[Rfam]
RNA sequence: UUUCCCAUUUGACUACCACAUUUUCUUCUCUUACUGGAAUUUCGUGGCUAUGCUUGUGGGAUAGAGUAAUGCCGCCGUGAUCUGAAGGAGGAGGGUUUCCUGUGUCCUCCUCCUAUAUGAAAUGGCCGGACAGAGCGGU
Numbered sequence: 001u002u003u004c005c006c007a008u009u010u011g012a013c014u015a016c017c018a019c020a021u022u023u024u025c026u027u028c029u030c031u032u033a034c035u036g037g038a039a040u041u042u043c044g045u046g047g048c049u050a051u052g053c054u055u056g057u058g059g060g061a062u063a064g065a066g067u068a069a070u071g072c073c074g075c076c077g078u079g080a081u082c083u084g085a086a087g088g089a090g091g092a093g094g095g096u097u098u099c100c101u102g103u104g105u106c107c108u109c110c111u112c113c114u115a116u117a118u119g120a121a122a123u124g125g126c127c128g129g130a131c132a133g134a135g136c137g138g139u
Stems, first nucleotide, its partner, number of pairs: 004060004016047004074126004092114004

A member of the RNA family "Small nucleolar RNA SNORA29" from Erinaceus europaeus, 139 nucleotides long. A reference for the family is Huttenhofer et al. (2001), "RNomics: an experimental approach that identifies 201 candidates for novel, small, non-messenger RNAs in mouse", EMBO J. Rfam links the family to the GO terms nucleolus and RNA processing. The family's consensus secondary structure was predicted with PFOLD. It is one of the family's seed sequences. It is annotated as an H/ACA-box small nucleolar RNA. Rfam describes the family as follows. ACA29 is a member of the H/ACA class of snoRNA that guide the sites of modification of uridines to pseudouridines.